[Rfam]
RNA sequence: CAGCCGGAGGCUGGCCCGAAGGGUGAGCCUCAGGGAUGCGGCGAGUAAAUCGCAUAGAAGGCUUAGUCUCUGGGCGAGUCAGCACAAGAUGACGAAGCCCAUCGGGUAAAGGAGAUAGGGUAAAUGCGGCGGUUAUGCACCGAGAGUACAUGUA
Numbered sequence: 001c002a003g004c005c006g007g008a009g010g011c012u013g014g015c016c017c018g019a020a021g022g023g024u025g026a027g028c029c030u031c032a033g034g035g036a037u038g039c040g041g042c043g044a045g046u047a048a049a050u051c052g053c054a055u056a057g058a059a060g061g062c063u064u065a066g067u068c069u070c071u072g073g074g075c076g077a078g079u080c081a082g083c084a085c086a087a088g089a090u091g092a093c094g095a096a097g098c099c100c101a102u103c104g105g106g107u108a109a110a111g112g113a114g115a116u117a118g119g120g121u122a123a124a125u126g127c128g129g130c131g132g133u134u135a136u137g138c139a140c141c142g143a144g145a146g147u148a149c150a151u152g153u154a
Stems, first nucleotide, its partner, number of pairs: 001013005022153001029146001033141002037137002040133001042131002050129006061121003066116006072100004078093004
RNA: Group II catalytic intron D1-D4-3
Organism: Methylocaldum marinum